Rfam assigns this 139-nucleotide RNA sequence from Drosophila yakuba to the family "Small nucleolar RNA psi18S-841/snoR66". The family's RNA type in Rfam is H/ACA-box small nucleolar RNA. The source organism's lineage runs through Eukaryota, Panarthropoda, Panorpida, Diptera and Sophophora. Rfam 15.1 lists 108 matches to the family in 46 species. Rfam's curators write: psi18S-841 is a member of the H/ACA class of snoRNA. This family is responsible for guiding the modification of uridine 841 in Drosophila 18S rRNA to pseudouridine.
[Rfam]
RNA sequence: UGCAAAUGCACUCUGUGUCACAUUAGAACUAGCUUCGUGUGAUGACAAUUUGUUAGUUUGCCAAAUCAACGAGAUUCGUCUUAUCCAUGUGGUCAUGUUCUUACCAAUUUGCUCACAUUGAAAACGACCCUAACAUGAG
Numbered sequence: 001u002g003c004a005a006a007u008g009c010a011c012u013c014u015g016u017g018u019c020a021c022a023u024u025a026g027a028a029c030u031a032g033c034u035u036c037g038u039g040u041g042a043u044g045a046c047a048a049u050u051u052g053u054u055a056g057u058u059u060g061c062c063a064a065a066u067c068a069a070c071g072a073g074a075u076u077c078g079u080c081u082u083a084u085c086c087a088u089g090u091g092g093u094c095a096u097g098u099u100c101u102u103a104c105c106a107a108u109u110u111g112c113u114c115a116c117a118u119u120g121a122a123a124a125c126g127a128c129c130c131u132a133a134c135a136u137g138a139g
Base pairs, nucleotide, nucleotide: 002061003060004059005058006057007056010053011052014047015046016045017043018042019041020040021039022038023037066138067137068136071130073129075127077126078125084121085120087118088117089116090115091114092113094111097108